A member of the RNA family "Caenorhabditis snoRNA ceN38", 137 nucleotides long.
[Rfam]
RNA sequence: ACGCGUCUAUUUCAUCCAAUCAUCAACUUGCUUCAAUUGUUGGCGAUUCAGCGUAUUCACGACGCAAAAAUGACGGCUUCUCCAUUGACGUCUAGUCAGAUCACACUGGCUUGGAUACAAUUAGGAAGUUUACAUUU
Numbered sequence: 001a002c003g004c005g006u007c008u009a010u011u012u013c014a015u016c017c018a019a020u021c022a023u024c025a026a027c028u029u030g031c032u033u034c035a036a037u038u039g040u041u042g043g044c045g046a047u048u049c050a051g052c053g054u055a056u057u058c059a060c061g062a063c064g065c066a067a068a069a070a071u072g073a074c075g076g077c078u079u080c081u082c083c084a085u086u087g088a089c090g091u092c093u094a095g096u097c098a099g100a101u102c103a104c105a106c107u108g109g110c111u112u113g114g115a116u117a118c119a120a121u122u123a124g125g126a127a128g129u130u131u132a133c134a135u136u137u
Base pairs, nucleotide, nucleotide: 003065004064005063006062007061018048019047020046021045023043024042025041026040027039075130076129077128078127079126080125081124084121085120086119087118090116091115092114093113094112095110096109097108098107099106
It is annotated as an H/ACA-box small nucleolar RNA.
A reference for the family is Jia et al. (2007), "Systematic identification of non-coding RNA 2,2,7-trimethylguanosine cap structures in Caenorhabditis elegans", BMC Mol Biol.
Rfam links the family to the GO terms RNA processing and nucleolus.